Description:
Rfam assigns this 58-nucleotide RNA sequence from Inhella gelatinilytica to the family "nhaA-I RNA". From the family's description: Acidobacteria, Alphaproteobacteria, Betaproteobacteria and Gammaproteobacteria, Verrucomicrobia, cand. division NC10. It scores 44 bits against the family's covariance model. NCBI's taxonomy places the organism under Bacteria, Pseudomonadati, Burkholderiales, Sphaerotilaceae, Inhella.
RNA sequence: GGGUGUUGCCGCGCCGCGAGGCGCGCAGCAGGUUUUACGCGCUGGUCGGGCCGCCACG
Numbered sequence: 001g002g003g004u005g006u007u008g009c010c011g012c013g014c015c016g017c018g019a020g021g022c023g024c025g026c027a028g029c030a031g032g033u034u035u036u037a038c039g040c041g042c043u044g045g046u047c048g049g050g051c052c053g054c055c056a057c058g
Base pairs, nucleotide, nucleotide: 005029006028007027008026009025011024012023013022014021040058041057043056044055045054046053